RNA sequence: CUGGAAUGAUGAUUCUUAGCCAAAUCAGACAUUGAUGUGCUCCUGAGGAAUGUCUUCUUGUAUAAUAUAUGUAUAAGCUUUGAACAAGACACCCUUCUGUAGAAGCGCAUCUAUGUGAUGAUAAAACAGAGAGAUGGUAUUAAACUGACCAGA
Dot-bracket structure: ((((................................................................................................................................................)))).

Shown here is a 153-nucleotide sequence from Apium graveolens, a member of the family "small nucleolar RNA snoR127". NCBI's taxonomy places the organism under Eukaryota, Tracheophyta, Apiaceae, Apioideae, Apium. Gene Ontology terms of the family: nucleolus and RNA processing.